[Rfam]
Shown here is a 354-nucleotide part of an RNA from Monosporascus sp. mg162, a member of the family "Ascomycota telomerase RNA". Its family is annotated with telomerase activity, telomere maintenance via telomerase and telomerase catalytic core complex in the Gene Ontology. On this family, see Qi et al., Nucleic Acids Res 2013: "The common ancestral core of vertebrate and fungal telomerase RNAs".
RNA sequence: UUCAACAGAGAGAGCUUCUUUGAAGUCGAUUCGGCAGGAAUGUUAUGGUGGCAGCCGCCGAUUUCGAUAAACGAAUUCGUCUACGACAGUUCUGGUUUCUUGGAAGCUAAUGACGGGGUCAUCGGGUCGGAGGUUGAGGUAAUCAGCAUGAAUUGCUUCGACUCGUAAGACGCGGAGACCGGGACCCAUCUAGAGUUGGAGUCAAAGCUUAGCGCUUGUCCGGUCUUUGCGGAUUGCCUGUAGCAGCAUUCAUAACGAUGACCUGCAAAUUUCAAUUUUUUGAUCCUGUCAAUCUGGAAAACUGGUCUGAAGACAAAUCGUAGGCUGUUCUCCGCUCCGGUGGAGGACAGCCCC
Numbered sequence: 001u002u003c004a005a006c007a008g009a010g011a012g013a014g015c016u017u018c019u020u021u022g023a024a025g026u027c028g029a030u031u032c033g034g035c036a037g038g039a040a041u042g043u044u045a046u047g048g049u050g051g052c053a054g055c056c057g058c059c060g061a062u063u064u065c066g067a068u069a070a071a072c073g074a075a076u077u078c079g080u081c082u083a084c085g086a087c088a089g090u091u092c093u094g095g096u097u098u099c100u101u102g103g104a105a106g107c108u109a110a111u112g113a114c115g116g117g118g119u120c121a122u123c124g125g126g127u128c129g130g131a132g133g134u135u136g137a138g139g140u141a142a143u144c145a146g147c148a149u150g151a152a153u154u155g156c157u158u159c160g161a162c163u164c165g166u167a168a169g170a171c172g173c174g175g176a177g178a179c180c181g182g183g184a185c186c187c188a189u190c191u192a193g194a195g196u197u198g199g200a201g202u203c204a205a206a207g208c209u210u211a212g213c214g215c216u217u218g219u220c221c222g223g224u225c226u227u228u229g230c231g232g233a234u235u236g237c238c239u240g241u242a243g244c245a246g247c248a249u250u251c252a253u254a255a256c257g258a259u260g261a262c263c264u265g266c267a268a269a270u271u272u273c274a275a276u277u278u279u280u281u282g283a284u285c286c287u288g289u290c291a292a293u294c295u296g297g298a299a300a301a302c303u304g305g306u307c308u309g310a311a312g313a314c315a316a317a318u319c320g321u322a323g324g325c326u327g328u329u330c331u332c333c334g335c336u337c338c339g340g341u342g343g344a345g346g347a348c349a350g351c352c353c354c
Stems, first nucleotide, its partner, number of pairs: 183203003186199003205217004